[Rfam]
RNA: MIR2617 microRNA precursor family
RNA sequence: AUGUGAUGUGACAUGCUCGUUUGGGGUUUUACUCUGAUAUUGAAUUAUUAUUAUUUAAUUAAUUUUGGGAAACGGGGUGUUACACGAAA
Numbered sequence: 001a002u003g004u005g006a007u008g009u010g011a012c013a014u015g016c017u018c019g020u021u022u023g024g025g026g027u028u029u030u031a032c033u034c035u036g037a038u039a040u041u042g043a044a045u046u047a048u049u050a051u052u053a054u055u056u057a058a059u060u061a062a063u064u065u066u067g068g069g070a071a072a073c074g075g076g077g078u079g080u081u082a083c084a085c086g087a088a089a
Stems, first nucleotide, its partner, number of pairs: 002089001004087001007084008016076006